[Rfam]
RNA sequence: AUGUUGUAUUUGGGCAGAAUGAUGACAUACCUGUACAUGAAUAUGUACAGGUAUGUCAUCAUUCUGCCCAAAUUUGUCUGU
Dot-bracket structure: ....((.((((((((((((((.(((((((((..................))))))))).)))))))))))))).)).....
Numbered sequence: 001a002u003g004u005u006g007u008a009u010u011u012g013g014g015c016a017g018a019a020u021g022a023u024g025a026c027a028u029a030c031c032u033g034u035a036c037a038u039g040a041a042u043a044u045g046u047a048c049a050g051g052u053a054u055g056u057c058a059u060c061a062u063u064c065u066g067c068c069c070a071a072a073u074u075u076g077u078c079u080g081u
Stems, first nucleotide, its partner, number of pairs: 005076002008073014023058009
About this RNA
Shown here is an 81-nucleotide sequence from Muraenolepis orangiensis, a member of the family "mir-31 microRNA precursor family". Clan: mir-31 microRNA precursor family. The source organism's lineage runs through Eukaryota, Eurypterygia, Gadariae, Muraenolepididae and Muraenolepis. A search with the family's covariance model found it, with a score of 51 bits. Pairs were carried over by alignment from the consensus structure, which was predicted with RNAalifold. Its family is annotated with gene silencing by miRNA and RISC complex in the Gene Ontology.